[Rfam]
Nucleotides: 109
Base pairs, nucleotide, nucleotide: 009043010042011041012040014037015036016035017034018033020031021030022029079102080101081100082099083098084097085096
Number, partner (000 for none) and nucleotide at each position: 001000c002000u003000u004000c005000g006000c007000u008000g009043g010042u011041g012040g013000c014037g015036c016035a017034c018033u019000u020031c021030c022029c023000u024000u025000u026000a027000g028000c029022g030021g031020g032000u033018g034017g035016u036015g037014u038000u039000a040012u041011c042010a043009u044000g045000c046000g047000u048000c049000g050000c051000u052000g053000u054000c055000a056000u057000c058000a059000g060000a061000c062000a063000g064000a065000g066000c067000a068000a069000g070000a071000u072000c073000c074000c075000c076000a077000c078000u079102a080101g081100c082099c083098c084097g085096c086000u087000g088000c089000u090000g091000c092000a093000u094000c095000a096085g097084c098083g099082g100081g101080c102079u103000u104000u105000u106000u107000c108000a109000u

The record is a 109-nucleotide RNA from Candidatus Sodalis pierantonii, which matches "Tryptophan operon leader" in Rfam. Lineage of the source: Bacteria > Pseudomonadota > Gammaproteobacteria > Bruguierivoracaceae > Candidatus Sodalis pierantonii. From the family's description: At least 6 amino acid operons are known to be regulated by attenuation. It is annotated as a cis-regulatory leader. Its family is annotated with tryptophan biosynthetic process and transcriptional attenuation by ribosome in the Gene Ontology. The literature on the family includes a 1982 paper in Annu Rev Genet by Kolter and Yanofsky, "Attenuation in amino acid biosynthetic operons".